[Rfam]
RNA sequence: UUGAACUUGUCGGAGUGCCAAUUGGCUGAGACCACAUCAAGUGGGAUCCGUUGAACCUGAUCUGGUUAAGACCAGCGAAGGGAACAAGAGAUGCAUCAGA
Numbered sequence: 001u002u003g004a005a006c007u008u009g010u011c012g013g014a015g016u017g018c019c020a021a022u023u024g025g026c027u028g029a030g031a032c033c034a035c036a037u038c039a040a041g042u043g044g045g046a047u048c049c050g051u052u053g054a055a056c057c058u059g060a061u062c063u064g065g066u067u068a069a070g071a072c073c074a075g076c077g078a079a080g081g082g083a084a085c086a087a088g089a090g091a092u093g094c095a096u097c098a099g100a
Stems, first nucleotide, its partner, number of pairs: 006088005011050004016044001017026003033043003056081003062075004

This 100-nucleotide RNA sequence from Salinivibrio sp. KP-1 belongs to the Rfam family "TPP riboswitch aptamer (THI element)". It scores 81 bits against the family's covariance model. The base pairs follow the family's consensus structure, which is taken from published work. Vitamin B(1) in its active form thiamin pyrophosphate (TPP) is an essential coenzyme that is synthesised by coupling of pyrimidine and thiazole moieties in bacteria.